[Rfam]
RNA: PyrR binding site
RNA sequence: GGUACCUUUAAUUUCAGUCCAGAGAGGCUGACAAGGUAAGUCGGAAUGGUUUGUUUGGGACAAGUGUAAGCUUGAGCCCAUCUAUCAGCAUGUGUUAGAGGCUUCCUGUCAGUUUGGCAGGAAGCCUCUUUCUU
Numbered sequence: 001g002g003u004a005c006c007u008u009u010a011a012u013u014u015c016a017g018u019c020c021a022g023a024g025a026g027g028c029u030g031a032c033a034a035g036g037u038a039a040g041u042c043g044g045a046a047u048g049g050u051u052u053g054u055u056u057g058g059g060a061c062a063a064g065u066g067u068a069a070g071c072u073u074g075a076g077c078c079c080a081u082c083u084a085u086c087a088g089c090a091u092g093u094g095u096u097a098g099a100g101g102c103u104u105c106c107u108g109u110c111a112g113u114u115u116g117g118c119a120g121g122a123a124g125c126c127u128c129u130u131u132c133u134u
Base pairs, nucleotide, nucleotide: 003038004037005036006035007034008033014031015030016029017028018027019026053082055080057078058077061074062073063072064071065070097129098128099127100126101125102124103123104122105121106120107119108118109117110116